Rfam assigns this 113-nucleotide RNA from Clostridium sp. FS41 to the family "Glycine riboswitch aptamer".
A search with the family's covariance model found it, with a score of 49 bits.
The organism belongs to Clostridium, within Bacteria.
RNA sequence: AUGAUGGAUUCGGGAGAGACUGUCCGGGGGCUGGAGUGAUGAUCCGGCAGUGACUUAGGGCAGCGCCGAAGGGGAAGCGGAGAACUCUCAGGCAAAAGGACCGGAUACCGGAC
Numbered sequence: 001a002u003g004a005u006g007g008a009u010u011c012g013g014g015a016g017a018g019a020c021u022g023u024c025c026g027g028g029g030g031c032u033g034g035a036g037u038g039a040u041g042a043u044c045c046g047g048c049a050g051u052g053a054c055u056u057a058g059g060g061c062a063g064c065g066c067c068g069a070a071g072g073g074g075a076a077g078c079g080g081a082g083a084a085c086u087c088u089c090a091g092g093c094a095a096a097a098g099g100a101c102c103g104g105a106u107a108c109c110g111g112a113c
Stems, first nucleotide, its partner, number of pairs: 006108001008106006020063006065093003068089002072087003